About this RNA
A member of the RNA family "speF leader" from Pseudaminobacter soli, 146 nucleotides long. Rfam links the family to the GO term regulation of gene expression. The organism belongs to Pseudaminobacter, within Bacteria. A search with the family's covariance model found it, with a score of 87 bits. About the family: This family is a putative regulatory RNA structure that is found upstream of the speF gene encoding ornithine decarboxylase in Agrobacterium tumefaciens and other alpha-proteobacteria.
[Rfam]
RNA sequence: UUCCGGUUGUCCAAAGACCGGGGUUACUGAAGAGGCACACCUUCAUUGCCGGCAGUGCGGUGGGACAUCCCUCCAAGCCAAGGCAGACAAAGCGAGCAGGAGCCCGGCAAGGCUCAAGCUCAUCGCCGCGAGACGGCAUUCGAUGG
Numbered sequence: 001u002u003c004c005g006g007u008u009g010u011c012c013a014a015a016g017a018c019c020g021g022g023g024u025u026a027c028u029g030a031a032g033a034g035g036c037a038c039a040c041c042u043u044c045a046u047u048g049c050c051g052g053c054a055g056u057g058c059g060g061u062g063g064g065a066c067a068u069c070c071c072u073c074c075a076a077g078c079c080a081a082g083g084c085a086g087a088c089a090a091a092g093c094g095a096g097c098a099g100g101a102g103c104c105c106g107g108c109a110a111g112g113c114u115c116a117a118g119c120u121c122a123u124c125g126c127c128g129c130g131a132g133a134c135g136g137c138a139u140u141c142g143a144u145g146g
Stems, first nucleotide, its partner, number of pairs: 001023008034050004057126003083093001102113003